RNA: Purine riboswitch aptamer
Organism: Solibacillus sp. R5-41
RNA sequence: AACAUAAAUCAAAUACGUCGUCGUAUAAUGUCGGGAAUAUGGCCCGUGAGUUUCUACCGAAUCACCAUAAAUGAUUCGACUACGAUUUAAAAAUAGGAUUCU
Numbered sequence: 001a002a003c004a005u006a007a008a009u010c011a012a013a014u015a016c017g018u019c020g021u022c023g024u025a026u027a028a029u030g031u032c033g034g035g036a037a038u039a040u041g042g043c044c045c046g047u048g049a050g051u052u053u054c055u056a057c058c059g060a061a062u063c064a065c066c067a068u069a070a071a072u073g074a075u076u077c078g079a080c081u082a083c084g085a086u087u088u089a090a091a092a093a094u095a096g097g098a099u100u101c102u
Base pairs, nucleotide, nucleotide: 020086021085022084023083024082025081029049032046033045034044035043058078059077060076061075062074063073064072